Shown here is a 62-nucleotide sequence from Chelydra serpentina, a member of the family "Selenocysteine insertion sequence 1".
By type it is a cis-regulatory element.
A reference for the family is Walczak et al. (1996), "A novel RNA structural motif in the selenocysteine insertion element of eukaryotic selenoprotein mRNAs", RNA.
The match comes from Rfam's covariance-model search (38 bits).
From the family's description: The incorporation of selenocysteine into a protein sequence is directed by an in-frame UGA codon (usually a stop codon) within the coding region of the mRNA. Selenoprotein mRNAs contain a conserved secondary structure in the 3' UTR that is required for the distinction of UGA stop from UGA selenocysteine.
The organism belongs to Chelydra, within Eukaryota.
RNA sequence: GUUGCAGUUAUGAUGUUACUGUACCAAAUCCUUUGGGAUGUACAGUACCUGAUGUUUGCACC
Dot-bracket structure: (.(((.........(.((((((((.....((....))..)))))))).)........))).)